RNA sequence: GCCUUGUGGUUCCUAGAGUCGGCUAAAAGUGCCGAGCUGUAGGUUUUAAUUGACGGGCGCAUACGAACUUCUGCGAUUUUAUGCAUGGAACCUGCAGCUACAGCAGCGCUCCAUAGCCCGGUUGCAGAUACACUU
Numbered sequence: 001g002c003c004u005u006g007u008g009g010u011u012c013c014u015a016g017a018g019u020c021g022g023c024u025a026a027a028a029g030u031g032c033c034g035a036g037c038u039g040u041a042g043g044u045u046u047u048a049a050u051u052g053a054c055g056g057g058c059g060c061a062u063a064c065g066a067a068c069u070u071c072u073g074c075g076a077u078u079u080u081a082u083g084c085a086u087g088g089a090a091c092c093u094g095c096a097g098c099u100a101c102a103g104c105a106g107c108g109c110u111c112c113a114u115a116g117c118c119c120g121g122u123u124g125c126a127g128a129u130a131c132a133c134u135u
Stems, first nucleotide, its partner, number of pairs: 001058004007048002012043004017038001019035005071127001073125006083117002085114004091108001092106004
Dot-bracket structure: ((((..((...((((.(.(((((.......)))))..).))))...))......))))............(.((((((....((((((..(((((.......)))).)..)))).))..)))))).)........